[Rfam]
RNA sequence: AUUGCACCCUAACCCAAAGGUCAUAUCAUUUCAAUGGUAUGAUUUUGUCUGGUGUGCAAACAGAAAACUGAUCCUUGUCGCCUUUCUCUGACGCUGCUGUGCCUUUGAAAGUGAAUUCAAGAAUCAACAAAU
Numbered sequence: 001a002u003u004g005c006a007c008c009c010u011a012a013c014c015c016a017a018a019g020g021u022c023a024u025a026u027c028a029u030u031u032c033a034a035u036g037g038u039a040u041g042a043u044u045u046u047g048u049c050u051g052g053u054g055u056g057c058a059a060a061c062a063g064a065a066a067a068c069u070g071a072u073c074c075u076u077g078u079c080g081c082c083u084u085u086c087u088c089u090g091a092c093g094c095u096g097c098u099g100u101g102c103c104u105u106u107g108a109a110a111g112u113g114a115a116u117u118c119a120a121g122a123a124u125c126a127a128c129a130a131a132u
Base pairs, nucleotide, nucleotide: 002059003058004057005056006055007054009052019044020043021042022041023040024039025038026037027036028035070125071124072123074121075120076119082111083110084109085108086107090103092101
RNA: Small nucleolar RNA SNORA68
Organism: Channa argus